Glycine riboswitch aptamer: an 88-nucleotide RNA from Jannaschia rubra.
The pairing is the family consensus, mapped onto this sequence.
The match comes from Rfam's covariance-model search (51 bits).
Nucleotides: 088
Base pairs, nucleotide, nucleotide: 006083007082009080010079012078013077020033021032022031023030035069036068037067038065039064042063043062044061048056049055
Number, partner (000 for none) and nucleotide at each position: 001000c002000u003000g004000c005000a006083c007082g008000g009080c010079a011000c012078g013077g014000g015000a016000g017000a018000c019000u020033c021032u022031g023030u024000c025000g026000c027000a028000g029000g030023a031022c032021a033020g034000g035069g036068c037067c038065g039064a040000a041000g042063g043062a044061g045000c046000a047000a048056c049055c050000g051000c052000c053000c054000c055049g056048g057000u058000a059000a060000a061044c062043u063042c064039u065038c066000a067037g068036g069035c070000g071000a072000a073000c074000g075000g076000a077013c078012c079010u080009g081000g082007c083006g084000u085000g086000c087000g088000a
Source information: Gene Ontology term of the family: glycine biosynthetic process. Lineage of the source: Bacteria > Pseudomonadati > Pseudomonadota > Alphaproteobacteria > Jannaschia.